[Rfam]
Shown here is a 124-nucleotide sequence from Idiomarina tyrosinivorans, a member of the family "Gammaprotebacteria rimP leader".
The source organism's lineage runs through Bacteria, Pseudomonadati, Alteromonadales, Idiomarinaceae and Idiomarina.
RNA sequence: CGACUAGAAUAACGACAAAGGGUCCAGUGUUUAGAAAGCCCCGCUUUAGCUCGGGGCUUUUUACUAUGUGACCUAAGCCACCCUACGGAGUGGCCUUAACACUGGGCGUUUACGCCCUUUUUUC
Numbered sequence: 001c002g003a004c005u006a007g008a009a010u011a012a013c014g015a016c017a018a019a020g021g022g023u024c025c026a027g028u029g030u031u032u033a034g035a036a037a038g039c040c041c042c043g044c045u046u047u048a049g050c051u052c053g054g055g056g057c058u059u060u061u062u063a064c065u066a067u068g069u070g071a072c073c074u075a076a077g078c079c080a081c082c083c084u085a086c087g088g089a090g091u092g093g094c095c096u097u098a099a100c101a102c103u104g105g106g107c108g109u110u111u112a113c114g115c116c117c118u119u120u121u122u123u124c
Base pairs, nucleotide, nucleotide: 035060036059037058038057039056040055041054042053043052104117105116106115107114